[Rfam]
RNA sequence: UAACCUUGGUAUGAGAGUGCCAGUUGAACGGUCAGAAGUCAGCAGAAGCCAUAGUAACCGCUUGAUCUAGACAAGAGGGGGAGGGC
Numbered sequence: 001u002a003a004c005c006u007u008g009g010u011a012u013g014a015g016a017g018u019g020c021c022a023g024u025u026g027a028a029c030g031g032u033c034a035g036a037a038g039u040c041a042g043c044a045g046a047a048g049c050c051a052u053a054g055u056a057a058c059c060g061c062u063u064g065a066u067c068u069a070g071a072c073a074a075g076a077g078g079g080g081g082a083g084g085g086c
Base pairs, nucleotide, nucleotide: 001026002025006023007022008021009020010019011018012017039046040045048086049085050084058078059077061075062074063073
Group II catalytic intron D1-D4-1: an 86-nucleotide RNA from Halalkalibacterium halodurans.
The organism belongs to Halalkalibacterium halodurans, within Bacteria.
Rfam's curators put it in the seed alignment.